The family of this 74-nucleotide sequence from Flavobacterium enshiense is "Flavo-1 RNA".
The base pairs follow the family's consensus structure, which is taken from published work.
The source organism's lineage runs through Bacteria, Flavobacteriia, Flavobacteriales, Flavobacteriaceae and Flavobacterium enshiense.
The match comes from Rfam's covariance-model search (70 bits).
RNA sequence: UCAUAGCCCCGAUGGGAGUGGAAAUCCUGUCUUGUUUUCAACAAGACAGAUUGCAACGGACAGCGGAAAAAGGG
Numbered sequence: 001u002c003a004u005a006g007c008c009c010c011g012a013u014g015g016g017a018g019u020g021g022a023a024a025u026c027c028u029g030u031c032u033u034g035u036u037u038u039c040a041a042c043a044a045g046a047c048a049g050a051u052u053g054c055a056a057c058g059g060a061c062a063g064c065g066g067a068a069a070a071a072g073g074g
Base pairs, nucleotide, nucleotide: 009066010065011064013062014061018057019056023052024051025050026049029047030046031045032044033043034042035041036040